[Rfam]
RNA sequence: GCGUGCCGCCGCAGUCUACGUCGGCGCGCCGUCAUCUGUUGGUCCGUCCGCACGGCACGGGGCGGAAGAGACGAGAGGA
Numbered sequence: 001g002c003g004u005g006c007c008g009c010c011g012c013a014g015u016c017u018a019c020g021u022c023g024g025c026g027c028g029c030c031g032u033c034a035u036c037u038g039u040u041g042g043u044c045c046g047u048c049c050g051c052a053c054g055g056c057a058c059g060g061g062g063c064g065g066a067a068g069a070g071a072c073g074a075g076a077g078g079a
Stems, first nucleotide, its partner, number of pairs: 001029008010020002031072003036068002043066007
Shown here is a 79-nucleotide RNA, a member of the family "aspS RNA". Rfam classes the family as a cis-regulatory element.